[Rfam]
RNA: Small nucleolar RNA SNORD56
Organism: Cnephaeus nilssonii
RNA sequence: AUGCAAUGAUGCUAACAUUUUGCGUCAACAGCAGCUCACCUAGUGAGUGUUGAUACUUGGGGUCUGAGUGG
Numbered sequence: 001a002u003g004c005a006a007u008g009a010u011g012c013u014a015a016c017a018u019u020u021u022g023c024g025u026c027a028a029c030a031g032c033a034g035c036u037c038a039c040c041u042a043g044u045g046a047g048u049g050u051u052g053a054u055a056c057u058u059g060g061g062g063u064c065u066g067a068g069u070g071g
Base pairs, nucleotide, nucleotide: 002070003069004068008026009025010024011023